[Rfam]
Rfam assigns this 227-nucleotide RNA sequence from Streptomyces lavendulae to the family "Streptomyces sRNA 4677". Rfam classes the family as a small RNA. Pairs were carried over by alignment from the consensus structure. A search with the family's covariance model found it, with a score of 123 bits.
RNA sequence: GGAUCCGGUGUUCCUCGACGUAAACCGAUUCAAGUACCGGGGGAAAUCCAACCAACCCACCCCUCCGGCUCCCCGCUCACUCACACGGGUGAACUGUGCCAACUGGGCUGGAUUUCAGGAGGGUUGCCGGGCAUAUGCUCGCCCCGCAACCUCAGAACUGAGACGGCCCCCGCCGGGACUGGCAUCCCGGGCGAGGGCCUGACCAACUAGGAAGUAGCACCUUCCCA
Numbered sequence: 001g002g003a004u005c006c007g008g009u010g011u012u013c014c015u016c017g018a019c020g021u022a023a024a025c026c027g028a029u030u031c032a033a034g035u036a037c038c039g040g041g042g043g044a045a046a047u048c049c050a051a052c053c054a055a056c057c058c059a060c061c062c063c064u065c066c067g068g069c070u071c072c073c074c075g076c077u078c079a080c081u082c083a084c085a086c087g088g089g090u091g092a093a094c095u096g097u098g099c100c101a102a103c104u105g106g107g108c109u110g111g112a113u114u115u116c117a118g119g120a121g122g123g124u125u126g127c128c129g130g131g132c133a134u135a136u137g138c139u140c141g142c143c144c145c146g147c148a149a150c151c152u153c154a155g156a157a158c159u160g161a162g163a164c165g166g167c168c169c170c171c172g173c174c175g176g177g178a179c180u181g182g183c184a185u186c187c188c189g190g191g192c193g194a195g196g197g198c199c200u201g202a203c204c205a206a207c208u209a210g211g212a213a214g215u216a217g218c219a220c221c222u223u224c225c226c227a
Stems, first nucleotide, its partner, number of pairs: 007207001009205002017069001019067001077092006107143001109141003165199005171193003175188004210225005
About the family: Located in the intergenic region between anti-sigma factor SCO4677 gene and a putative regulatory protein gene SCO4676. scr4677 expression requires the SCO4677 activity and scr4677 sRNA itself seem to affect the levels of the SCO4676-associated transcripts.